[Rfam]
Overview:
A member of the RNA family "Ascomycota telomerase RNA" from Coniochaeta ligniaria, 351 nucleotides of a longer RNA. It scores 556 bits against the family's covariance model. Rfam classes the family as a non-coding RNA gene. On this family, see Qi et al., Nucleic Acids Res 2013: "The common ancestral core of vertebrate and fungal telomerase RNAs".

RNA sequence: AUCACACGGAAAGACUCCUUUGAUCCGGUCUCCUGGUCCUAGUUACGCUCAUUCUCGCUGGUUCGGCUUCUGGUGGUGUCGAUGAUUGCGGCUGUAUGUGGAAUGGAUCUGCUGAGAGUCCUGAUCUGGUCGGCUCCUGGGGAAAAGCUGCAGAGCGGCGGAAGCUGUGCCGGGACCCAUCUCGAGUUGGAGUCAGAGCUUCGUGCUCGUCUGGUGCAGGGGAUAUCCUCAGUUGCCUAUCUCCAGGGUUGCAAGUGACGGAGCUUGUUAAGAGGACAGGCUUCUUGGGAAGCGGUCCUGGCUGUCCCUUUCUCCAGCAAUGGUGGGAGGGCAGCCCCUCAUAUCGUGAGG
Numbered sequence: 001a002u003c004a005c006a007c008g009g010a011a012a013g014a015c016u017c018c019u020u021u022g023a024u025c026c027g028g029u030c031u032c033c034u035g036g037u038c039c040u041a042g043u044u045a046c047g048c049u050c051a052u053u054c055u056c057g058c059u060g061g062u063u064c065g066g067c068u069u070c071u072g073g074u075g076g077u078g079u080c081g082a083u084g085a086u087u088g089c090g091g092c093u094g095u096a097u098g099u100g101g102a103a104u105g106g107a108u109c110u111g112c113u114g115a116g117a118g119u120c121c122u123g124a125u126c127u128g129g130u131c132g133g134c135u136c137c138u139g140g141g142g143a144a145a146a147g148c149u150g151c152a153g154a155g156c157g158g159c160g161g162a163a164g165c166u167g168u169g170c171c172g173g174g175a176c177c178c179a180u181c182u183c184g185a186g187u188u189g190g191a192g193u194c195a196g197a198g199c200u201u202c203g204u205g206c207u208c209g210u211c212u213g214g215u216g217c218a219g220g221g222g223a224u225a226u227c228c229u230c231a232g233u234u235g236c237c238u239a240u241c242u243c244c245a246g247g248g249u250u251g252c253a254a255g256u257g258a259c260g261g262a263g264c265u266u267g268u269u270a271a272g273a274g275g276a277c278a279g280g281c282u283u284c285u286u287g288g289g290a291a292g293c294g295g296u297c298c299u300g301g302c303u304g305u306c307c308c309u310u311u312c313u314c315c316a317g318c319a320a321u322g323g324u325g326g327g328a329g330g331g332c333a334g335c336c337c338c339u340c341a342u343a344u345c346g347u348g349a350g351g
Stems, first nucleotide, its partner, number of pairs: 174194003177190003196208004